[Rfam]
Nucleotides: 310
Base pairs, nucleotide, nucleotide: 001306002305003304004303005302006301007300008299009298010297011295012261013260014259015258016257017256018255020039021038022037023036024035025034026033027032044293045292046291048290049289050288051287052286053162054161055160056159060196061195062194063193065158066157067156068155069154070084071083072082073081074080085099086097087096088095089094100153101152105151106150107147108146166218167217168216169215177208178207179206180205181204188200189199190198191197225244226243227242228241229240230239231238232237
Number, partner (000 for none) and nucleotide at each position: 001306c002305a003304a004303g005302a006301a007300a008299a009298a010297c011295g012261g013260c014259u015258u016257g017256u018255u019000g020039a021038u022037u023036c024035c025034c026033g027032a028000g029000u030000u031000u032027u033026u034025g035024g036023g037022g038021g039020u040000a041000g042000g043000a044293a045292a046291g047000u048290c049289c050288g051287g052286a053162c054161a055160c056159c057000a058000u059000a060196g061195a062194g063193c064000a065158g066157c067156a068155a069154a070084g071083c072082g073081g074080a075000u076000a077000a078000c079000a080074u081073c082072c083071g084070u085099c086097g087096g088095u089094c090000g091000u092000g093000a094089g095088a096087u097086c098000a099085g100153g101152a102000c103000c104000a105151g106150u107147g108146c109000a110000a111000c112000a113000g114000a115000a116000a117000g118000a119000a120000u121000g122000u123000a124000u125000a126000u127000u128000c129000a130000g131000u132000u133000a134000u135000a136000g137000u138000g139000a140000a141000a142000u143000c144000a145000g146108g147107u148000a149000a150106a151105c152101u153100c154069u155068u156067u157066g158065c159056g160055g161054u162053g163000c164000a165000a166218u167217g168216u169215u170000a171000a172000g173000u174000a175000u176000a177208u178207c179206a180205u181204c182000a183000g184000u185000u186000a187000a188200g189199g190198g191197c192000g193063g194062c195061u196060c197191g198190u199189c200188c201000g202000u203000u204181g205180a206179u207178g208177a209000g210000g211000g212000g213000u214000a215169a216168a217167c218166a219000g220000c221000u222000c223000a224000a225244g226243u227242u228241u229240u230239g231238c232237g233000g234000c235000a236000a237232c238231g239230c240229a241228g242227a243226a244225c245000g246000c247000a248000g249000a250000u251000a252000a253000a254000u255018a256017a257016c258015a259014g260013g261012c262000g263000c264000u265000u266000c267000g268000c269000u270000u271000c272000g273000g274000c275000g276000g277000a278000g279000a280000a281000c282000a283000g284000a285000a286052u287051c288050c289049g290048g291046c292045u293044u294000a295011c296000a297010g298009u299008u300007u301006u302005u303004c304003u305002u306001g307000u308000g309000g310000g

Rfam assigns this 310-nucleotide RNA sequence from Chryseobacterium koreense to the family "Bacterial RNase P class A".
The source organism's lineage runs through Bacteria, Pseudomonadati, Flavobacteriia, Chryseobacterium and Chryseobacterium koreense.